[Rfam]
RNA sequence: GCAGACUCACUCUGUGCCGAACUGCAGUCUUCAGUUCAGGUGCUUUUUCUGUCUGCAAAAGUAAUAGUUCAUGGGUGUGAAAAACGCUUCUUUUGUGUAGAAGUCUGUUACAACUGCUCUUGGCACAUUGCU
Numbered sequence: 001g002c003a004g005a006c007u008c009a010c011u012c013u014g015u016g017c018c019g020a021a022c023u024g025c026a027g028u029c030u031u032c033a034g035u036u037c038a039g040g041u042g043c044u045u046u047u048u049c050u051g052u053c054u055g056c057a058a059a060a061g062u063a064a065u066a067g068u069u070c071a072u073g074g075g076u077g078u079g080a081a082a083a084a085c086g087c088u089u090c091u092u093u094u095g096u097g098u099a100g101a102a103g104u105c106u107g108u109u110a111c112a113a114c115u116g117c118u119c120u121u122g123g124c125a126c127a128u129u130g131c132u
Stems, first nucleotide, its partner, number of pairs: 001056006014043005019037002022034003069123003073119003077114002082109001085107001

Rfam assigns this 132-nucleotide RNA sequence from Eudromia elegans to the family "Small nucleolar RNA SNORA77". Gene Ontology terms of the family: RNA processing and nucleolus. A reference for the family is Schattner et al. (2006), "A computational screen for mammalian pseudouridylation guide H/ACA RNAs", RNA. Rfam classes the family as an H/ACA-box small nucleolar RNA. Rfam 15.1 lists 843 matches to the family in 607 species. ACA63 (SNORA77) is a member of the H/ACA class of snoRNAs that guide the sites of modification of uridines to pseudouridines. This snoRNA was identified by computational screening and its expression in mouse experimentally verified by Northern blot and primer extension analysis. ACA63 is proposed to guide the pseudouridylation of 18S rRNA U814. A search with the family's covariance model found it, with a score of 51 bits.